[Rfam]
RNA sequence: AUGAUUCCGCUUUCAGUCACGAUGAGAGUUUUCUUUACAUAUAGCUAAUCUGGAAAAUCUUAUCUUGACUGAUAUUAUGGUCAG
Numbered sequence: 001a002u003g004a005u006u007c008c009g010c011u012u013u014c015a016g017u018c019a020c021g022a023u024g025a026g027a028g029u030u031u032u033c034u035u036u037a038c039a040u041a042u043a044g045c046u047a048a049u050c051u052g053g054a055a056a057a058u059c060u061u062a063u064c065u066u067g068a069c070u071g072a073u074a075u076u077a078u079g080g081u082c083a084g
Stems, first nucleotide, its partner, number of pairs: 003082004009076001011074001013072007021064002029057006
Overview
mir-1422 microRNA precursor family: an 84-nucleotide sequence from Ornithorhynchus anatinus. Pairs were carried over by alignment from the consensus structure, which was predicted with RNAalifold. Taxonomically the source falls in Ornithorhynchus (Eukaryota, Chordata, Euteleostomi, Ornithorhynchidae). Its family is annotated with miRNA-mediated post-transcriptional gene silencing and RISC complex in the Gene Ontology.